RNA: SAR11_0636 sRNA
RNA sequence: GUUUGUAUUUUGAGUCCGUAAUUGAAUCAAAAGUGAAUCAAAACGUGAACAUCCAGACUACAUUUUGUAUGCUUGUGGAUAACUUCAACC
Number, nucleotide and partner (000 for none) at each position: 001g090002u000003u088004u087005g086006u000007a000008u000009u057010u056011u055012g054013a052014g000015u048016c047017c000018g000019u000020a000021a000022u000023u040024g039025a038026a000027u036028c035029a034030a000031a000032a000033g000034u029035g028036a027037a000038u025039c024040a023041a000042a000043a000044c000045g000046u000047g016048a015049a000050c000051a000052u013053c000054c012055a011056g010057a009058c078059u077060a076061c075062a074063u000064u000065u000066u000067g000068u000069a000070u000071g000072c000073u000074u062075g061076u060077g059078g058079a000080u000081a000082a000083c000084u000085u000086c005087a004088a003089c000090c001